[Rfam]
RNA sequence: AAGCCUAUUCAUGGUACUUUUGCAUCGUAUAUCGUGCAUGGCCUUGGCGGGACGUACAGCAAGAUGGAACGUGUAUAGAGCGC
Numbered sequence: 001a002a003g004c005c006u007a008u009u010c011a012u013g014g015u016a017c018u019u020u021u022g023c024a025u026c027g028u029a030u031a032u033c034g035u036g037c038a039u040g041g042c043c044u045u046g047g048c049g050g051g052a053c054g055u056a057c058a059g060c061a062a063g064a065u066g067g068a069a070c071g072u073g074u075a076u077a078g079a080g081c082g083c
Stems, first nucleotide, its partner, number of pairs: 003081002006078001007076002010073004015068001017066001018064006027057004
The record is an 83-nucleotide sequence from Bombyx mori, which matches "mir-2820 microRNA precursor family" in Rfam.